Source information
The family of this 131-nucleotide RNA from Tessaracoccus bendigoensis is "FMN riboswitch aptamer (RFN element)". It scores 102 bits against the family's covariance model. The family's consensus secondary structure is taken from published work.

RNA sequence: AAACGUGUUCCGGGGUCGGUGUAAUUCCGAACCGGCGGUUAUAGUCCGCGACCCGUCAGCUUCCAGUUGACGGUUGACCUGGUGGAACUCCAGGACCGACGGUGAAAGUCCGGAUGGGAGGCAACACGUGG
Numbered sequence: 001a002a003a004c005g006u007g008u009u010c011c012g013g014g015g016u017c018g019g020u021g022u023a024a025u026u027c028c029g030a031a032c033c034g035g036c037g038g039u040u041a042u043a044g045u046c047c048g049c050g051a052c053c054c055g056u057c058a059g060c061u062u063c064c065a066g067u068u069g070a071c072g073g074u075u076g077a078c079c080u081g082g083u084g085g086a087a088c089u090c091c092a093g094g095a096c097c098g099a100c101g102g103u104g105a106a107a108g109u110c111c112g113g114a115u116g117g118g119a120g121g122c123a124a125c126a127c128g129u130g131g
Stems, first nucleotide, its partner, number of pairs: 003129007010120001017029003031109002033098002035049004044096002053073002078094005100112003